[Rfam]
The family of this 165-nucleotide RNA sequence from Indicator maculatus is "U1 spliceosomal RNA". NCBI's taxonomy places the organism under Eukaryota, Craniata, Saurischia, Neognathae, Indicator. The match comes from Rfam's covariance-model search (122 bits). U1 is a small nuclear RNA (snRNA) component of the spliceosome (involved in pre-mRNA splicing). Its 5' end forms complementary base pairs with the 5' splice junction, thus defining the 5' donor site of an intron. There are significant differences in sequence and secondary structure between metazoan and yeast U1 snRNAs, the latter being much longer (568 nucleotides as compared to 164 nucleotides in human). Nevertheless, secondary structure predictions suggest that all U1 snRNAs share a 'common core' consisting of helices I, II, the proximal region of III, and IV. This family does not contain the larger yeast sequences. Rfam links the family to the GO terms mRNA 5'-splice site recognition, pre-mRNA 5'-splice site binding and U1 snRNP. Rfam classes the family as a spliceosomal small nuclear RNA.
RNA sequence: AUACUUACCUGGUAGGGGUGACACCAUGAUCAGGCAGGUGGUUUUCCCAGGGUGAGGCUCAUCCUUUGCACUCUGGGUGUGCUGACCCCUGGGAUUUUCCCAAAUGUGGGAAACUCAAUUUCUUAAUUUGUGGUAGUGGGGGAUUUAUAUAUAUAUAUAUAUAUA
Number, nucleotide and partner (000 for none) at each position: 001a000002u000003a000004c000005u000006u000007a000008c000009c000010u000011g000012g122013u000014a120015g119016g048017g047018g046019u000020g044021a043022c000023a042024c041025c040026a039027u038028g000029a000030u000031c000032a000033g000034g000035c000036a000037g000038g027039u026040g025041g024042u023043u021044u020045u000046c018047c017048c016049a090050g089051g088052g087053u000054g086055a000056g083057g082058c081059u000060c079061a078062u077063c076064c075065u000066u000067u000068g000069c000070a000071c000072u000073c000074u000075g064076g063077g062078u061079g060080u000081g058082c057083u056084g000085a000086c054087c052088c051089c050090u049091g000092g000093g116094a115095u113096u112097u111098u000099c109100c108101c000102a000103a000104a000105u000106g000107u000108g100109g099110g000111a097112a096113a095114c000115u094116c093117a000118a000119u015120u014121u000122c012123u000124u000125a000126a000127u000128u000129u000130g000131u000132g000133g000134u000135a000136g000137u000138g000139g000140g000141g000142g000143a000144u165145u000146u163147a162148u161149a160150u159151a158152u157153a000154u000155a000156u000157a152158u151159a150160u149161a148162u147163a146164u000165a144